The record is a 106-nucleotide RNA from Heliomicrobium modesticaldum, which matches "SAM riboswitch aptamer (S box leader)" in Rfam. Rfam 15.1 lists 9,625 matches to the family in 4,158 species. From the family's description: The SAM riboswitch is found upstream of a number of genes which code for proteins involved in methionine or cysteine biosynthesis in Gram-positive bacteria. Pairs were carried over by alignment from the consensus structure, which is taken from published work. It is one of the family's seed sequences.
[Rfam]
RNA sequence: CUCUUAUCAAGAGUUGGUGGAGGGACUGGCCCGAUGAAGCCCGGCAACCAGCAGGUUUUUCCUGCAUGGUGCCAAUUCCUGCAGGGGAAACCCUGAAAGAUAAGAC
Numbered sequence: 001c002u003c004u005u006a007u008c009a010a011g012a013g014u015u016g017g018u019g020g021a022g023g024g025a026c027u028g029g030c031c032c033g034a035u036g037a038a039g040c041c042c043g044g045c046a047a048c049c050a051g052c053a054g055g056u057u058u059u060u061c062c063u064g065c066a067u068g069g070u071g072c073c074a075a076u077u078c079c080u081g082c083a084g085g086g087g088a089a090a091c092c093c094u095g096a097a098a099g100a101u102a103a104g105a106c
Stems, first nucleotide, its partner, number of pairs: 002105007013042001016041003022032003026081001028079002043073004048069002051065004077098001082095005